[Rfam]
RNA sequence: GAGACACCCUCAUGGAGCAGGACUUACUUUAGUGGGGCUUUGGUGCUCACUAAGUCUGCCCCUUGAAUGUGUCACC
Numbered sequence: 001g002a003g004a005c006a007c008c009c010u011c012a013u014g015g016a017g018c019a020g021g022a023c024u025u026a027c028u029u030u031a032g033u034g035g036g037g038c039u040u041u042g043g044u045g046c047u048c049a050c051u052a053a054g055u056c057u058g059c060c061c062c063u064u065g066a067a068u069g070u071g072u073c074a075c076c
Stems, first nucleotide, its partner, number of pairs: 001075001003073005010066003014062002017059003021056003029053008037044002
This 76-nucleotide RNA sequence from Myotis davidii belongs to the Rfam family "mir-9229 microRNA precursor family". The match comes from Rfam's covariance-model search (88 bits). Its family is annotated with miRNA-mediated post-transcriptional gene silencing and RISC complex in the Gene Ontology.